[Rfam]
RNA sequence: AAAAGAAGGCGACAUCCGUAUAAUCUGAAAAUAACGCAGAGUGAUUUUCUGGUUAUUGGUUAUUUUAGGAUUAAGCUCAAUAUAAAAUUAUAGGGGAAAAGACGGACAAGCGGAAUUAUCUUAUAAAAAAAGCCGAUGUGAAUAUCGGCUUUUUUAUUAUCU
Numbered sequence: 001a002a003a004a005g006a007a008g009g010c011g012a013c014a015u016c017c018g019u020a021u022a023a024u025c026u027g028a029a030a031a032u033a034a035c036g037c038a039g040a041g042u043g044a045u046u047u048u049c050u051g052g053u054u055a056u057u058g059g060u061u062a063u064u065u066u067a068g069g070a071u072u073a074a075g076c077u078c079a080a081u082a083u084a085a086a087a088u089u090a091u092a093g094g095g096g097a098a099a100a101g102a103c104g105g106a107c108a109a110g111c112g113g114a115a116u117u118a119u120c121u122u123a124u125a126a127a128a129a130a131a132g133c134c135g136a137u138g139u140g141a142a143u144a145u146c147g148g149c150u151u152u153u154u155u156a157u158u159a160u161c162u
Stems, first nucleotide, its partner, number of pairs: 015106005024070003028066007040057007112121002130151009
RNA: Enterobacterial sRNA STnc430
Organism: Salmonella enterica